[Rfam]
RNA: Small nucleolar RNA SNORA26
RNA sequence: AUGCCCCUUUAAGGUUCACACAGUGUCUUAAAUGGCUAACACAGAAGUGUAAAGAAAACACCCAAAAUCCAGAGAGGAUAUGGAAACUCUUGUUUGGAAGCUGUGUGGUGUCAUAGCA
Numbered sequence: 001a002u003g004c005c006c007c008u009u010u011a012a013g014g015u016u017c018a019c020a021c022a023g024u025g026u027c028u029u030a031a032a033u034g035g036c037u038a039a040c041a042c043a044g045a046a047g048u049g050u051a052a053a054g055a056a057a058a059c060a061c062c063c064a065a066a067a068u069c070c071a072g073a074g075a076g077g078a079u080a081u082g083g084a085a086a087c088u089c090u091u092g093u094u095u096g097g098a099a100g101c102u103g104u105g106u107g108g109u110g111u112c113a114u115a116g117c118a
Stems, first nucleotide, its partner, number of pairs: 002051003006047001008045003014040003019035001059110004069097005075091001077089002081086001